[Rfam]
RNA sequence: UGGAGGAUUGAGAAGGUUUGGCAGCUGACACUGUGCUGUUUUAACUGGUUAUAACCUCCUACAUUGAAAAACAGUUCAGGAUCAGUGGUGAGCUCCAUGUGCUUGCAGGGAGCAGUGCUGCUUCUGUAUACAUGUC
Dot-bracket structure: .(((((........((((.((((((.........))))))..))))........))))).....................((..(..(((.....(...(.((.....)))...)...)))..).)).........
The family of this 136-nucleotide RNA sequence from Acipenser ruthenus is "Small nucleolar RNA SNORA47". For this family Rfam cites "RNomics: an experimental approach that identifies 201 candidates for novel, small, non-messenger RNAs in mouse" (Huttenhofer et al., EMBO J, 2001). The base pairs follow the family's consensus structure, which was predicted with WAR.